[Rfam]
RNA: Archaeal large subunit ribosomal RNA, nucleotides 2113 to 2691
RNA sequence: CCUCUGUCGGGGAGAGAAGACCCUGUGGAGCUUUACUGCAGCCUGUUGUUGCGAUAUGGUUGCAAAUGCAGAGAGUAGCUGGGAGCCGUUAUGGUCAGUUCUCCGGGACUGAUCUAGGCGACAGUGUAACACCAGCCAUUUGUUACCGUAUCGCUAACCUGCUUAUGCAGGGACAUCGGCAGGUGGGCAGUUCGGCUGGGGCGGCACCCCCUUGAAAAUGUAUCGAGGGGGCCCAAAGAUUGGCUCAGGCGGGACAGAACUCCGCCGGUGAGGGCAAAGCCAAAAGCCAGUCUGACUGGAUUCCCAAUGAUACGGGAUUCAGAGGCGAAAGCCGGGCUUAGCGAUCCAUCAUGUCCUCACUAUUGGGGGCUGGUGGUGACAGAAAAGUUACCCUAGGGAUAACAGGCUCGUCGCGGGCGAGAGCUCCCAUCGACCCCGCGGUUUGGUACCUCGAUGUCGGCUCUUCCCAUCCUGGUUCUGCAGCAGGAGCCAAGGGUGGGGCUGCUCGCCCAUUAAAGGGGAACGUGAGCUGGGUUUAGACCGUCGUGAGACAGGUCGGUCUCUGCCUGACAGGGGCGU
Numbered sequence: 001c002c003u004c005u006g007u008c009g010g011g012g013a014g015a016g017a018a019g020a021c022c023c024u025g026u027g028g029a030g031c032u033u034u035a036c037u038g039c040a041g042c043c044u045g046u047u048g049u050u051g052c053g054a055u056a057u058g059g060u061u062g063c064a065a066a067u068g069c070a071g072a073g074a075g076u077a078g079c080u081g082g083g084a085g086c087c088g089u090u091a092u093g094g095u096c097a098g099u100u101c102u103c104c105g106g107g108a109c110u111g112a113u114c115u116a117g118g119c120g121a122c123a124g125u126g127u128a129a130c131a132c133c134a135g136c137c138a139u140u141u142g143u144u145a146c147c148g149u150a151u152c153g154c155u156a157a158c159c160u161g162c163u164u165a166u167g168c169a170g171g172g173a174c175a176u177c178g179g180c181a182g183g184u185g186g187g188c189a190g191u192u193c194g195g196c197u198g199g200g201g202c203g204g205c206a207c208c209c210c211c212u213u214g215a216a217a218a219u220g221u222a223u224c225g226a227g228g229g230g231g232c233c234c235a236a237a238g239a240u241u242g243g244c245u246c247a248g249g250c251g252g253g254a255c256a257g258a259a260c261u262c263c264g265c266c267g268g269u270g271a272g273g274g275c276a277a278a279g280c281c282a283a284a285a286g287c288c289a290g291u292c293u294g295a296c297u298g299g300a301u302u303c304c305c306a307a308u309g310a311u312a313c314g315g316g317a318u319u320c321a322g323a324g325g326c327g328a329a330a331g332c333c334g335g336g337c338u339u340a341g342c343g344a345u346c347c348a349u350c351a352u353g354u355c356c357u358c359a360c361u362a363u364u365g366g367g368g369g370c371u372g373g374u375g376g377u378g379a380c381a382g383a384a385a386a387g388u389u390a391c392c393c394u395a396g397g398g399a400u401a402a403c404a405g406g407c408u409c410g411u412c413g414c415g416g417g418c419g420a421g422a423g424c425u426c427c428c429a430u431c432g433a434c435c436c437c438g439c440g441g442u443u444u445g446g447u448a449c450c451u452c453g454a455u456g457u458c459g460g461c462u463c464u465u466c467c468c469a470u471c472c473u474g475g476u477u478c479u480g481c482a483g484c485a486g487g488a489g490c491c492a493a494g495g496g497u498g499g500g501g502c503u504g505c506u507c508g509c510c511c512a513u514u515a516a517a518g519g520g521g522a523a524c525g526u527g528a529g530c531u532g533g534g535u536u537u538a539g540a541c542c543g544u545c546g547u548g549a550g551a552c553a554g555g556u557c558g559g560u561c562u563c564u565g566c567c568u569g570a571c572a573g574g575g576g577c578g579u
Stems, first nucleotide, its partner, number of pairs: 001576008010568003014563002022397004027393002029389005035191004042183007051154010062143007078136005085119003097110005158171004194207001195205003208230006233336002239291006245271002248266006272281002296322009324333001326331001347375005353370001355369004406447003410444001411441007421431002458533001459531004463525001464522005471496002475490005499511004539557004543552003